RNA sequence: UUGCACCAGCGAUUUAUGUUCUGCCUUCAGUACUUGUUGGUGGGAUAUUGUUCUGGUGCAGAAAGGAAAUGCUGCUCCCUGGAGCAGCGGCGGCCAGACAACCGUUGAGACAGAUCCACAGAUAAACGACUUAUCUCCUGUUGUUUGUCUACUAAAUCUGUCUCACAUUU
Numbered sequence: 001u002u003g004c005a006c007c008a009g010c011g012a013u014u015u016a017u018g019u020u021c022u023g024c025c026u027u028c029a030g031u032a033c034u035u036g037u038u039g040g041u042g043g044g045a046u047a048u049u050g051u052u053c054u055g056g057u058g059c060a061g062a063a064a065g066g067a068a069a070u071g072c073u074g075c076u077c078c079c080u081g082g083a084g085c086a087g088c089g090g091c092g093g094c095c096a097g098a099c100a101a102c103c104g105u106u107g108a109g110a111c112a113g114a115u116c117c118a119c120a121g122a123u124a125a126a127c128g129a130c131u132u133a134u135c136u137c138c139u140g141u142u143g144u145u146u147g148u149c150u151a152c153u154a155a156a157u158c159u160g161u162c163u164c165a166c167a168u169u170u
Stems, first nucleotide, its partner, number of pairs: 002060005009051002016048006025042001027040003107164008124146007
This 170-nucleotide sequence from Dichanthelium oligosanthes belongs to the Rfam family "small nucleolar RNA snoR143". The family's RNA type in Rfam is H/ACA-box small nucleolar RNA. Rfam links the family to the GO terms nucleolus and RNA processing. It scores 101 bits against the family's covariance model.